[Rfam]
A member of the RNA family "Plastid-ccsA-ndhD-2 3UTR RNA" from Nyssa sinensis, 53 nucleotides long. The match comes from Rfam's covariance-model search (57 bits). The source organism's lineage runs through Eukaryota, Euphyllophyta, Mesangiospermae, Pentapetalae and Nyssa.
RNA sequence: CUGGUGAGAACCAUUGGAAUCAAGUAGUAUAUUGAUUCACAUGGUUCUCACAA
Numbered sequence: 001c002u003g004g005u006g007a008g009a010a011c012c013a014u015u016g017g018a019a020u021c022a023a024g025u026a027g028u029a030u031a032u033u034g035a036u037u038c039a040c041a042u043g044g045u046u047c048u049c050a051c052a053a
Base pairs, nucleotide, nucleotide: 004051005050006049007048008047009046010045011044012043013042014041017038018037019036020035021034022033
Notes
On this family, see Richter et al., Plant Commun 2023: "Retrograde signaling in plants: A critical review focusing on the GUN pathway and beyond". Plastid ccsA-ndhD-2 is a non-coding RNA (ncRNA) recognised in plastids. It was found in the three prime untranslated region (3UTR) of ccsA and ndhD genes, its 3UTR location suggests a role in transcript maturation. Rfam classes the family as a cis-regulatory element.